[Rfam]
RNA sequence: GCAUAUCUCUAGUUUGUGCGUGAAUCUAACCCCGUUAUCGGGACCGUCCACUGCCUGUUUGGGUUCGAAUCCCUAGGCGAAAUGGCGUUAGAUUCACGCACAAACUCGCGAUCUGCCU
Number, nucleotide and partner (000 for none) at each position: 001g116002c115003a114004u000005a112006u111007c110008u000009c000010u000011a106012g105013u104014u103015u102016g101017u100018g099019c098020g097021u096022g095023a094024a093025u092026c091027u000028a089029a088030c087031c000032c085033c084034g000035u000036u000037a000038u000039c000040g000041g000042g000043a000044c000045c000046g078047u000048c076049c000050a000051c000052u000053g000054c000055c000056u000057g000058u000059u000060u000061g000062g000063g000064u000065u000066c000067g000068a000069a000070u000071c000072c000073c000074u000075a000076g048077g000078c046079g000080a000081a000082a000083u000084g033085g032086c000087g030088u029089u028090a000091g026092a025093u024094u023095c022096a021097c020098g019099c018100a017101c016102a015103a014104a013105c012106u011107c000108g000109c000110g007111a006112u005113c000114u003115g002116c001117c000118u000